[Rfam]
RNA: Potassium channel RNA editing signal
RNA sequence: GUGGGCUAUGGGGACAUGAGGCCCGUCACCGUGGGCGGCAAGAUAGUGGGCUCCCUAUGUGCUAUCGCUGGGGUCCUCACCAUCGCCCUGCCCGUGCCUGUCAUCGUCUCCAAC
Number, nucleotide and partner (000 for none) at each position: 001g114002u113003g000004g111005g110006c000007u000008a107009u106010g105011g104012g000013g102014a101015c100016a099017u000018g097019a000020g000021g095022c094023c000024c000025g000026u000027c000028a000029c000030c000031g000032u000033g000034g000035g000036c000037g077038g076039c000040a074041a000042g000043a000044u000045a000046g000047u000048g000049g063050g062051c061052u000053c000054c000055c000056u000057a000058u000059g000060u000061g051062c050063u049064a000065u000066c000067g000068c000069u000070g000071g000072g000073g000074u040075c000076c038077u037078c000079a000080c000081c000082a000083u000084c000085g000086c000087c000088c000089u000090g000091c000092c000093c000094g022095u021096g000097c018098c000099u016100g015101u014102c013103a000104u011105c010106g009107u008108c000109u000110c005111c004112a000113a002114c001